The family of this 88-nucleotide RNA sequence from Notechis scutatus is "mir-204 microRNA precursor family". Taxonomically the source falls in Notechis (Eukaryota, Opisthokonta, Craniata, Serpentes). The literature on the family includes a 2005 paper in Genes Dev by Chen et al., "The developmental miRNA profiles of zebrafish as determined by small RNA cloning". The match comes from Rfam's covariance-model search (63 bits).

[Rfam]
RNA sequence: CUUGGCUCUGUAGCUUUCCCUUUGUCAUCCUAUGCCUGGGAAAUUCAGGGAGGCUGGGAUGGUGAAGGGAAGCCCACAGCGCUAUAGU
Number, nucleotide and partner (000 for none) at each position: 001c000002u000003u000004g000005g000006c000007u000008c000009u000010g000011u000012a000013g000014c000015u000016u000017u070018c069019c068020c067021u066022u065023u000024g063025u062026c000027a000028u059029c058030c057031u056032a055033u000034g054035c053036c052037u051038g000039g000040g000041a000042a000043a000044u000045u000046c000047a000048g000049g000050g000051a037052g036053g035054c034055u032056g031057g030058g029059a028060u000061g000062g025063u024064g000065a022066a021067g020068g019069g018070a017071a000072g000073c000074c000075c000076a000077c000078a000079g000080c000081g000082c000083u000084a000085u000086a000087g000088u000
About this RNA:
Its family is annotated with miRNA-mediated post-transcriptional gene silencing and RISC complex in the Gene Ontology.